[Rfam]
Nucleotides: 600
Stems, first nucleotide, its partner, number of pairs: 002256002005250005011244002014241005020236002025223001027221005033175005039169001041168003048161002051107003054103004061098002065095005071089001075083003111158002114155002118151003122147004126137004179214001181212005187206001189204002192199002258271005279576005285569003289565002298516003305512002307509006317502003325499003329496002347356002361391003365387001368385001370383002373379001395493003400488001402487006411478002413471002415468006422444003426439005445455004519559004525553003529550004536545003580599003586593001
Number, partner (000 for none) and nucleotide at each position: 001000c002256g003255g004000a005250g006249c007248a008247g009246c010000c011244g012243c013000a014241g015240c016239u017238c018237g019000c020236a021235g022000c023000c024000c025223g026000c027221a028220g029219a030218g031217g032000a033175c034174g035173c036172c037171c038000u039169g040000a041168g042167c043166g044000g045000c046000a047000a048161g049160c050000a051107g052106g053105c054103g055102g056101g057100c058000a059000g060000a061098c062097g063000a064000a065095c066094a067093g068092a069091c070000c071089g072000a073000c074000u075083c076082g077081c078000g079000c080000c081077g082076c083075g084000u085000c086000c087000a088000c089071c090000u091069g092068u093067c094066u095065g096000c097062c098061g099000g100057g101056c102055c103054c104000g105053g106052c107051c108000c109000a110000g111158c112157g113000c114155g115154c116000a117000a118151c119150g120149g121000a122147c123146a124145c125144g126137c127136c128135g129134c130000g131000c132000g133000c134129g135128c136127g137126g138000a139000g140000c141000a142000g143000c144125c145124g146123u147122g148000c149120c150119c151118g152000c153000c154115g155114c156000c157112c158111g159000g160049g161048c162000u163000c164000c165000g166043c167042g168041c169039c170000a171037g172036g173035g174034c175033g176000c177000a178000c179214a180000c181212g182211c183210u184209c185208c186000g187206g188000g189204c190203c191000c192199c193198c194000a195000c196000c197000c198193g199192g200000c201000c202000c203190g204189g205000g206187c207000g208185g209184g210183a211182g212181u213000u214179u215000c216000a217031c218030c219029u220028c221027u222000c223025c224000c225000u226000g227000u228000c229000c230000g231000g232000g233000u234000a235021c236020u237018c238017g239016a240015g241014c242000c243012g244011c245000c246009g247008c248007u249006g250005c251000a252000a253000a254000g255003c256002c257000a258271a259270c260269u261268u262267u263000g264000g265000a266000a267262a268261a269260a270259g271258u272000u273000u274000u275000u276000u277000g278000g279576g280575g281574g282573a283572g284000u285569c286568u287567u288000u289565g290564g291000c292000u293000u294000u295000g296000a297000g298516g299515u300514g301000c302000c303000c304000a305512g306511c307509u308508c309507c310506g311505c312504g313000c314000u315000u316000u317502c318501c319500g320000a321000c322000u323000u324000c325499g326498g327497g328000a329496g330495c331000c332000u333000u334000u335000c336000c337000a338000g339000a340000a341000a342000a343000u344000g345000u346000u347356g348355c349000a350000a351000a352000a353000a354000a355348g356347c357000u358000a359000a360000g361391u362390c363389g364000u365387u366000g367000g368385g369000c370383a371382g372000a373379g374000g375000a376000a377000a378000a379373c380000g381000c382371c383370u384000u385368u386000a387365g388000c389363u390362g391361g392000a393000g394000a395493g396492u397491g398000a399000a400488g401000a402487c403486g404485a405484a406483c407482c408000a409000u410000c411478g412477a413471c414470u415468g416467c417466c418465g419464u420463g421000c422444u423443c424442u425000u426439u427438u428437u429436c430435c431000u432000c433000c434000u435430g436429g437428a438427g439426g440000u441000u442424g443423g444422a445455g446454u447453c448452c449000c450000c451000u452448g453447g454446g455445c456000g457000c458000c459000c460000c461000c462000a463420c464419a465418c466417g467416g468415c469000u470414a471413g472000a473000c474000g475000c476000c477412u478411c479000c480000u481000g482407g483406g484405u485404u486403c487402g488400c489000g490000a491397c492396g493395c494000a495330g496329c497327c498326c499325c500319c501318g502317g503000c504312c505311g506310u507309g508308g509307a510000u511306g512305c513000u514300c515299g516298c517000a518000c519559g520558g521557g522556c523000u524000c525553g526552g527551g528000a529550u530549c531548c532547g533000c534000c535000c536545g537544g538543u539000a540000g541000c542000g543538g544537c545536c546000u547532c548531g549530g550529a551527c552526u553525c554000u555000g556522g557521u558520c559519c560000c561000g562000c563000u564290c565289c566000c567287a568286g569285g570000c571000c572283c573282u574281c575280c576279c577000a578000a579000c580599c581598c582597c583000c584000a585000a586593c587000g588000a589000c590000g591000g592000a593586g594000c595000c596000c597582g598581g599580g600000c